RNA: Guanidine-II riboswitch aptamer (mini-ykkC)
RNA sequence: CGCCGGGGACGACCCCGACACUUCCCAAUAAUCAGGCGGGACGGCCCGC
Numbered sequence: 001c002g003c004c005g006g007g008g009a010c011g012a013c014c015c016c017g018a019c020a021c022u023u024c025c026c027a028a029u030a031a032u033c034a035g036g037c038g039g040g041a042c043g044g045c046c047c048g049c
Stems, first nucleotide, its partner, number of pairs: 002019001004017005036049005